[Rfam]
RNA sequence: CUAUAUUCGAAAGUGCAGUAAGGCAGCUGGCUUUCGUGACUGUGUUCUCCUGGCGCGUUCCGAAGCCGCGGGUGUUCCUCCCUCAUCCGUAGGUAAUGCGCCCGCCUCGCCUCGCUCGCCUCCGGCGUGCGAGGCUCUCU
Numbered sequence: 001c002u003a004u005a006u007u008c009g010a011a012a013g014u015g016c017a018g019u020a021a022g023g024c025a026g027c028u029g030g031c032u033u034u035c036g037u038g039a040c041u042g043u044g045u046u047c048u049c050c051u052g053g054c055g056c057g058u059u060c061c062g063a064a065g066c067c068g069c070g071g072g073u074g075u076u077c078c079u080c081c082c083u084c085a086u087c088c089g090u091a092g093g094u095a096a097u098g099c100g101c102c103c104g105c106c107u108c109g110c111c112u113c114g115c116u117c118g119c120c121u122c123c124g125g126c127g128u129g130c131g132a133g134g135c136u137c138u139c140u
Stems, first nucleotide, its partner, number of pairs: 052102008068090007109135007117127001119125002
Dot-bracket structure: ...................................................((((((((........(((((((.........)))))))....))))))))......(((((((.(.((...)).).))))))).....
RNA: Rhizobiales sRNA Atu_C7
Organism: Rhizobium sp. BK275